serC leader: a 53-nucleotide RNA sequence from Nitratireductor pacificus. A reference for the family is Corbino et al. (2005), "Evidence for a second class of S-adenosylmethionine riboswitches and other regulatory RNA motifs in alpha-proteobacteria", Genome Biol. It is annotated as a cis-regulatory leader. The match comes from Rfam's covariance-model search (64 bits). Rfam describes the family as follows. This family is a putative regulatory RNA structure that is found upstream of the serC-serA operon in some alpha-proteobacteria. The final stem of the structure overlaps the ribosome binding site of the serC reading frame. Lineage of the source: Bacteria > Alphaproteobacteria > Hyphomicrobiales > Nitratireductor > Nitratireductor pacificus. Pairs were carried over by alignment from the consensus structure.

RNA sequence: CCGUGGGCCACCCCUCCCCACCGAGGGGCGUGCUAUCUGAGAGGAUAGGAACA
Numbered sequence: 001c002c003g004u005g006g007g008c009c010a011c012c013c014c015u016c017c018c019c020a021c022c023g024a025g026g027g028g029c030g031u032g033c034u035a036u037c038u039g040a041g042a043g044g045a046u047a048g049g050a051a052c053a
Base pairs, nucleotide, nucleotide: 011028012027013026014025015024016023033048034047035046036045037044038043